Rfam assigns this 301-nucleotide RNA from Brassica rapa to the family "Plant signal recognition particle RNA". For this family Rfam cites "Kinship in the SRP RNA family" (Rosenblad et al., RNA Biol, 2009). Rfam classes the family as a non-coding RNA gene. Pairs were carried over by alignment from the consensus structure, which is taken from published work.
[Rfam]
RNA sequence: GUCCAGCUUGGUAACGCGGGCUUGUGAUCCGAGUGGAGACAACAAGAUGUUGGAACUAUGGGCCGAUCUCAUUAGGCCGGGUUCGGGUUGGCUAUUCACUGGCCUGCCCAUUCCAAGUCGGGAGUUGAGGGUUCGGGCUCGAGCGAAGGCUUGUGGUUCGGGCACUCUUAGAGCGGAGGAGACUGCGUGAGGCUGGUUUCACAGAGCAGCGUCCACCUCCCGCUUUCGACGGUGGAAGGAUCACGGGCCGGUGCCUUCUGAGCCCACUAUGACCUAAGACCACCUCCAUUGGAGGUUCUUA
Numbered sequence: 001g002u003c004c005a006g007c008u009u010g011g012u013a014a015c016g017c018g019g020g021c022u023u024g025u026g027a028u029c030c031g032a033g034u035g036g037a038g039a040c041a042a043c044a045a046g047a048u049g050u051u052g053g054a055a056c057u058a059u060g061g062g063c064c065g066a067u068c069u070c071a072u073u074a075g076g077c078c079g080g081g082u083u084c085g086g087g088u089u090g091g092c093u094a095u096u097c098a099c100u101g102g103c104c105u106g107c108c109c110a111u112u113c114c115a116a117g118u119c120g121g122g123a124g125u126u127g128a129g130g131g132u133u134c135g136g137g138c139u140c141g142a143g144c145g146a147a148g149g150c151u152u153g154u155g156g157u158u159c160g161g162g163c164a165c166u167c168u169u170a171g172a173g174c175g176g177a178g179g180a181g182a183c184u185g186c187g188u189g190a191g192g193c194u195g196g197u198u199u200c201a202c203a204g205a206g207c208a209g210c211g212u213c214c215a216c217c218u219c220c221c222g223c224u225u226u227c228g229a230c231g232g233u234g235g236a237a238g239g240a241u242c243a244c245g246g247g248c249c250g251g252u253g254c255c256u257u258c259u260g261a262g263c264c265c266a267c268u269a270u271g272a273c274c275u276a277a278g279a280c281c282a283c284c285u286c287c288a289u290u291g292g293a294g295g296u297u298c299u300u301a
Base pairs, nucleotide, nucleotide: 001040002039003038005022006021007020008019009018010017028037029036030035048301049300052297053296056292057291058290059288060287061286062284065281067279072277073276074275075274076273078271079265080264081263082262083261084260085259086258087257090255091254093253094252099251100250101249102248103247104246105245106244108239109238111237112236113235114234115233117230118229119228120227121226122225123224124223125222127167128166129165131163132162133161134160135159136158137157138156139155140153141152142151143150144149168173175220176219177218178217179216185212186211187210188209193204194203195202